[Rfam]
RNA: transfer-messenger RNA
Organism: Geobacillus kaustophilus
RNA sequence: GGGGACGAUCCGGAUUCGACAGGGGUAGGUCGAGCUUAAGCGGCGAGCCGAGGGGGACGUCCUCGUAAAAACGUCACCUAAAGAUAACUGGCAAACAAAACUACGCUUUAGCUGCCUAAUUGCUGCAGCUAGCUCCUCCCGCCAUCGCCCGCGUGGCGUUCGAGGGGCUCAUAUGAAGCGGGCUACGCCCAAAUCCGCCGCCUGAGGAUGAGGGAAGAGACGAACCAGGCUAGCCGCCGGGAGGCCUGUCGGUAGGCGGAACGGACGGCGAAGCGAAAUAUACCGACUACGCUCGUAGAUGCUUAAGUGGCGAUGCCUCUGGACGUGGGUUCGACUCCCACCGUCUCCAUUU
Numbered sequence: 001g002g003g004g005a006c007g008a009u010c011c012g013g014a015u016u017c018g019a020c021a022g023g024g025g026u027a028g029g030u031c032g033a034g035c036u037u038a039a040g041c042g043g044c045g046a047g048c049c050g051a052g053g054g055g056g057a058c059g060u061c062c063u064c065g066u067a068a069a070a071a072c073g074u075c076a077c078c079u080a081a082a083g084a085u086a087a088c089u090g091g092c093a094a095a096c097a098a099a100a101c102u103a104c105g106c107u108u109u110a111g112c113u114g115c116c117u118a119a120u121u122g123c124u125g126c127a128g129c130u131a132g133c134u135c136c137u138c139c140c141g142c143c144a145u146c147g148c149c150c151g152c153g154u155g156g157c158g159u160u161c162g163a164g165g166g167g168c169u170c171a172u173a174u175g176a177a178g179c180g181g182g183c184u185a186c187g188c189c190c191a192a193a194u195c196c197g198c199c200g201c202c203u204g205a206g207g208a209u210g211a212g213g214g215a216a217g218a219g220a221c222g223a224a225c226c227a228g229g230c231u232a233g234c235c236g237c238c239g240g241g242a243g244g245c246c247u248g249u250c251g252g253u254a255g256g257c258g259g260a261a262c263g264g265a266c267g268g269c270g271a272a273g274c275g276a277a278a279u280a281u282a283c284c285g286a287c288u289a290c291g292c293u294c295g296u297a298g299a300u301g302c303u304u305a306a307g308u309g310g311c312g313a314u315g316c317c318u319c320u321g322g323a324c325g326u327g328g329g330u331u332c333g334a335c336u337c338c339c340a341c342c343g344u345c346u347c348c349a350u351u352u
Stems, first nucleotide, its partner, number of pairs: 001348007020321008031310001034308009044295005049065005054077001056075004109131007132169001134167004140158006147183006188214003193209004200230005233269002237264003244257003248287004254281001325341005